Source information:
This 141-nucleotide RNA from Protea cynaroides belongs to the Rfam family "small nucleolar RNA snoR137". Rfam links the family to the GO terms nucleolus and RNA processing. It is annotated as an H/ACA-box small nucleolar RNA. Pairs were carried over by alignment from the consensus structure, which was predicted with RNAalifold. The organism belongs to Protea, within Eukaryota. For this family Rfam cites "Mining small RNA sequencing data: a new approach to identify small nucleolar RNAs in Arabidopsis" (Chen and Wu, Nucleic Acids Res, 2009). A search with the family's covariance model found it, with a score of 53 bits.

[Rfam]
RNA sequence: GUUGCUUCUUUAAUAGUUGAGUUGUCACAUUAUUCAUGUGAUUACUCAUAGGAAGGAGCAUAUAUCCAAGAAAAGCCAGUUUUAAACAGCAUGAUGAUGCUCUUUUCUCUGGCAUUGUGUUUCCUGUCUCCCGGUAUAUUU
Numbered sequence: 001g002u003u004g005c006u007u008c009u010u011u012a013a014u015a016g017u018u019g020a021g022u023u024g025u026c027a028c029a030u031u032a033u034u035c036a037u038g039u040g041a042u043u044a045c046u047c048a049u050a051g052g053a054a055g056g057a058g059c060a061u062a063u064a065u066c067c068a069a070g071a072a073a074a075g076c077c078a079g080u081u082u083u084a085a086a087c088a089g090c091a092u093g094a095u096g097a098u099g100c101u102c103u104u105u106u107c108u109c110u111g112g113c114a115u116u117g118u119g120u121u122u123c124c125u126g127u128c129u130c131c132c133g134g135u136a137u138a139u140u141u
Stems, first nucleotide, its partner, number of pairs: 003060006018048005024042004075135003079131001088121003092117005